Shown here is a 92-nucleotide RNA, a member of the family "Plasmid-encoded Shigella sRNA A".
For this family Rfam cites "An integrated approach for finding overlooked genes in Shigella" (Peng et al., PLoS One, 2011).
It scores 84 bits against the family's covariance model.
It is annotated as a small RNA.
[Rfam]
RNA sequence: UGGUUGCGAAAAGAAUUUUAAUUUUUUAAGAGACCGGAGAGAAUUAGCGGUCUCGGGCGACAGGCACAACGGAGAGAGAGAUUAUGUUUGAA
Numbered sequence: 001u002g003g004u005u006g007c008g009a010a011a012a013g014a015a016u017u018u019u020a021a022u023u024u025u026u027u028a029a030g031a032g033a034c035c036g037g038a039g040a041g042a043a044u045u046a047g048c049g050g051u052c053u054c055g056g057g058c059g060a061c062a063g064g065c066a067c068a069a070c071g072g073a074g075a076g077a078g079a080g081a082u083u084a085u086g087u088u089u090g091a092a
Stems, first nucleotide, its partner, number of pairs: 001066002004063003007059002013054002017050002019046005073089003077085001